Overview
This 76-nucleotide sequence from Triplophysa rosa belongs to the Rfam family "mir-129 microRNA precursor family". The match comes from Rfam's covariance-model search (85 bits). The source organism's lineage runs through Eukaryota, Opisthokonta, Teleostomi, Otomorpha and Triplophysa. Rfam 15.1 lists 1,242 matches to the family in 559 species. On this family, see Lagos-Quintana et al., Curr Biol 2002: "Identification of tissue-specific microRNAs from mouse". The base pairs follow the family's consensus structure, which was predicted with RNAalifold.
RNA sequence: ACAGCUCUUUUUGCGGUCUGGGCUUGCUGUUCCAUUAACUAACUAGCCAGGAAGCCCUUACCCCAAAAAGUAUCUG
Numbered sequence: 001a002c003a004g005c006u007c008u009u010u011u012u013g014c015g016g017u018c019u020g021g022g023c024u025u026g027c028u029g030u031u032c033c034a035u036u037a038a039c040u041a042a043c044u045a046g047c048c049a050g051g052a053a054g055c056c057c058u059u060a061c062c063c064c065a066a067a068a069a070g071u072a073u074c075u076g
Stems, first nucleotide, its partner, number of pairs: 007070007015062003020057004025052001027050002